[Rfam]
RNA sequence: CGGGAGAACCCUCGCUAAGGAACUUUGCAAUCUAGCCCCGUAACUUCGGGAGAAGGGGUGCUCAAGGUGGCGCCGCGUGCGGCGCCAUGGAGAGCCGCAGUGAAUAGGCGCUGGCGACUGUUUACCAAAAACUCAGCUCUGUGCGAACACGUAAGUGGAAGUAUACGGAGCGACGCUUGCCCGGUGCUGGAAGGUCAAGGGGAGGGGUGCAAGCCCUGAUCCGAAGCCCCAGUGAACGGCGGCCGUAACUAUAACGGUCCUAAGGUAGCGAAAUUCCUUGUCGGGUAAGUUCCGACCUGCACGAAAAGCGUAACGAUCAGCGCGCUGUCUCAGCGAGGGACCCG
Numbered sequence: 001c002g003g004g005a006g007a008a009c010c011c012u013c014g015c016u017a018a019g020g021a022a023c024u025u026u027g028c029a030a031u032c033u034a035g036c037c038c039c040g041u042a043a044c045u046u047c048g049g050g051a052g053a054a055g056g057g058g059u060g061c062u063c064a065a066g067g068u069g070g071c072g073c074c075g076c077g078u079g080c081g082g083c084g085c086c087a088u089g090g091a092g093a094g095c096c097g098c099a100g101u102g103a104a105u106a107g108g109c110g111c112u113g114g115c116g117a118c119u120g121u122u123u124a125c126c127a128a129a130a131a132c133u134c135a136g137c138u139c140u141g142u143g144c145g146a147a148c149a150c151g152u153a154a155g156u157g158g159a160a161g162u163a164u165a166c167g168g169a170g171c172g173a174c175g176c177u178u179g180c181c182c183g184g185u186g187c188u189g190g191a192a193g194g195u196c197a198a199g200g201g202g203a204g205g206g207g208u209g210c211a212a213g214c215c216c217u218g219a220u221c222c223g224a225a226g227c228c229c230c231a232g233u234g235a236a237c238g239g240c241g242g243c244c245g246u247a248a249c250u251a252u253a254a255c256g257g258u259c260c261u262a263a264g265g266u267a268g269c270g271a272a273a274u275u276c277c278u279u280g281u282c283g284g285g286u287a288a289g290u291u292c293c294g295a296c297c298u299g300c301a302c303g304a305a306a307a308g309c310g311u312a313a314c315g316a317u318c319a320g321c322g323c324g325c326u327g328u329c330u331c332a333g334c335g336a337g338g339g340a341c342c343c344g
Base pairs, nucleotide, nucleotide: 001344002343003342004341009339010338011337012336013335014334015333016332018330019329020328035059036058037057038056039055044049060095061094062093063092070085071084072083073082074081075080096100108323109322110321111320112319113318114317115315116314120132121131136171137170138169139168140167141166142165143164144161148157149156150155174310175309176308177307179240180239181238184237185236186233187232188231189230190229193228194227195226199222200221204217205216206215207214208213241259242258243257244256245255246254260264270297280296281295282294283293284292285291
Dot-bracket structure: ((((....((((((((.(((..............(((((....(....).....)))))((((......((((((....))))))......))))(...).......(((((((((...((.........))...(((((((((...(((....)))...)..))))))))..((((.(((..(((((((..(((...((...(((((....)))))...))...))))))))..)))))((((((.......))))))(...).....(.........((((((.....))))))).........))))...)).)))))))....))).)))))))).))))
The record is a 344-nucleotide part of an RNA from Meiothermus ruber, which matches "Bacterial large subunit ribosomal RNA" in Rfam. The organism belongs to Meiothermus ruber, within Bacteria. The base pairs follow the family's consensus structure, which is taken from published work. The sequence is in the family's curated seed alignment.